Rfam assigns this 82-nucleotide sequence from Heterocephalus glaber to the family "mir-877 microRNA precursor family".
RNA sequence: GUAGAGGAGAAGGCGCAGGGGACAGGCACUGAGACUCGGGUCCCUGGGCCCUCGCACACCGUCCUCUUCUCCCUGUCCCCAG
Numbered sequence: 001g002u003a004g005a006g007g008a009g010a011a012g013g014c015g016c017a018g019g020g021g022a023c024a025g026g027c028a029c030u031g032a033g034a035c036u037c038g039g040g041u042c043c044c045u046g047g048g049c050c051c052u053c054g055c056a057c058a059c060c061g062u063c064c065u066c067u068u069c070u071c072c073c074u075g076u077c078c079c080c081a082g
Stems, first nucleotide, its partner, number of pairs: 004078001006076001008074002012072002015069001017067007025059001026057001035054001038051005
The literature on the family includes a 2006 paper in Genome Res by Berezikov et al., "Many novel mammalian microRNA candidates identified by extensive cloning and RAKE analysis".